Shown here is a 137-nucleotide RNA sequence from Drosophila gunungcola, a member of the family "Small nucleolar RNA psi28S-1192".
RNA sequence: AAUAGGUCCAAUCUAAUUCUACAUAAUGGUUUAUUUAUGUAGUCUCGCUUCUGGACUAUAUUAAAUCCCAUCCUUUAUUAUCCUUGUGCUUGUGAUAAUUUCCAAGCAAUGUACAUGAGAAACGUAAAAGAAUAUAA
Numbered sequence: 001a002a003u004a005g006g007u008c009c010a011a012u013c014u015a016a017u018u019c020u021a022c023a024u025a026a027u028g029g030u031u032u033a034u035u036u037a038u039g040u041a042g043u044c045u046c047g048c049u050u051c052u053g054g055a056c057u058a059u060a061u062u063a064a065a066u067c068c069c070a071u072c073c074u075u076u077a078u079u080a081u082c083c084u085u086g087u088g089c090u091u092g093u094g095a096u097a098a099u100u101u102c103c104a105a106g107c108a109a110u111g112u113a114c115a116u117g118a119g120a121a122a123c124g125u126a127a128a129a130g131a132a133u134a135u136a137a
Stems, first nucleotide, its partner, number of pairs: 005057006019042008027033002071131002074128005083119006
Dot-bracket structure: ....((((((........((((((((((...)).)))))))).........)))))).............((.(((((....((((((.........................))))))....))))).))......
From the family's description: psi28S-1192 is a member of the H/ACA class of snoRNA. This family is responsible for guiding the modification of uridine 1192 to pseudouridine in Drosophila 28S rRNA.